[Rfam]
The record is an 84-nucleotide RNA sequence from Lentivirus humimdef1, which matches "HIV gag stem loop 3 (GSL3)" in Rfam. The base pairs follow the family's consensus structure, which was predicted with PFOLD. Rfam describes the family as follows. This family consists of several HIV gag stem loop 3 (GSL3) sequences. GSL3 is known to direct specific packaging of HIV-1 genomic RNA. Deletion of GSL3 leads to decreases in both viral RNA packaging and dimerisation. NCBI's taxonomy places the organism under Viruses, Artverviricota, Orthoretrovirinae, Lentivirus, Lentivirus humimdef1. The family's RNA type in Rfam is cis-regulatory element.

RNA sequence: GACCAGGAGGAAAGAAACGCUAUAUGCUAAAACACAUAGUAUGGGCAAGCAGGGAGCUGGACAGAUUUGCACUUAACCCUGGUC
Dot-bracket structure: (((((((......................................................................)))))))